[Rfam]
RNA sequence: GUAGUUUGAGAUAAAAACACGAUUCGGUUGGUAGUCCGGAUGCAGAUAUAAAUCUGUCAGUAACCUUCCCUCUUGGGUUGUCCAUUCUCAAUUUAAAGCUA
Numbered sequence: 001g002u003a004g005u006u007u008g009a010g011a012u013a014a015a016a017a018c019a020c021g022a023u024u025c026g027g028u029u030g031g032u033a034g035u036c037c038g039g040a041u042g043c044a045g046a047u048a049u050a051a052a053u054c055u056g057u058c059a060g061u062a063a064c065c066u067u068c069c070c071u072c073u074u075g076g077g078u079u080g081u082c083c084a085u086u087c088u089c090a091a092u093u094u095a096a097a098g099c100u101a
Base pairs, nucleotide, nucleotide: 004093006091007090008089009088010087011086022041023040024039025038026037027036042057043056044055045054046053047052068077069076070075
Annotation: A member of the RNA family "azaaromatic riboswitch aptamer (yjdF RNA)" from Caminicella sporogenes, 101 nucleotides long. The organism belongs to Caminicella sporogenes, within Bacteria. The family's consensus secondary structure is taken from published work. It scores 97 bits against the family's covariance model.